[Rfam]
RNA sequence: UGGCGCCCAACGUGGGGCUUUGGAUACGGGGGAAUUCGCGAGGGAAGAGGCAUGUAAGUGUUCGGCUGAAGAAAAAAAAAAAAAAGUGAAAGUCAGUUCUACAAAGAUCUCCGCGCGGGAGCCUGCAGUGCCGUUCUUAAAGGUACAGUAGCGCCUAAGUAUGGGACAAGAAUUAAGUAAGCAUAAAGUUUUUGUUAAGCAAUUAAAAGAAGCUUUAAAGACAUGGGGAGUAAAGGUUAAGAGUAAUGAUCUUUUUAAGUUUUUUGACCUUAUUAAGGAUACCUGUCCGU
Numbered sequence: 001u002g003g004c005g006c007c008c009a010a011c012g013u014g015g016g017g018c019u020u021u022g023g024a025u026a027c028g029g030g031g032g033a034a035u036u037c038g039c040g041a042g043g044g045a046a047g048a049g050g051c052a053u054g055u056a057a058g059u060g061u062u063c064g065g066c067u068g069a070a071g072a073a074a075a076a077a078a079a080a081a082a083a084a085a086g087u088g089a090a091a092g093u094c095a096g097u098u099c100u101a102c103a104a105a106g107a108u109c110u111c112c113g114c115g116c117g118g119g120a121g122c123c124u125g126c127a128g129u130g131c132c133g134u135u136c137u138u139a140a141a142g143g144u145a146c147a148g149u150a151g152c153g154c155c156u157a158a159g160u161a162u163g164g165g166a167c168a169a170g171a172a173u174u175a176a177g178u179a180a181g182c183a184u185a186a187a188g189u190u191u192u193u194g195u196u197a198a199g200c201a202a203u204u205a206a207a208a209g210a211a212g213c214u215u216u217a218a219a220g221a222c223a224u225g226g227g228g229a230g231u232a233a234a235g236g237u238u239a240a241g242a243g244u245a246a247u248g249a250u251c252u253u254u255u256u257a258a259g260u261u262u263u264u265u266g267a268c269c270u271u272a273u274u275a276a277g278g279a280u281a282c283c284u285g286u287c288c289g290u
Stems, first nucleotide, its partner, number of pairs: 006032003012027003037049001039047001093142001097140002106136001107134002114130003118126001149169001151167001154165004174217003177213002224266008234252006275290001277288004
This 290-nucleotide sequence from Sciurus vulgaris belongs to the Rfam family "Mason-Pfizer monkey virus packaging signal". The match comes from Rfam's covariance-model search (177 bits). The family's RNA type in Rfam is cis-regulatory element.